[Rfam]
RNA: mir-7386 microRNA precursor family
Organism: Phascolarctos cinereus
RNA sequence: ACUUGGAUAAGGCACUCUAUUUUGUAGGCUCAGUCAAAAUAAGAACCUUAUCCAUAGAG
Numbered sequence: 001a002c003u004u005g006g007a008u009a010a011g012g013c014a015c016u017c018u019a020u021u022u023u024g025u026a027g028g029c030u031c032a033g034u035c036a037a038a039a040u041a042a043g044a045a046c047c048u049u050a051u052c053c054a055u056a057g058a059g
Base pairs, nucleotide, nucleotide: 004054005053006052007051008050009049010048011047012046018041019040020039021038022037023036024035026034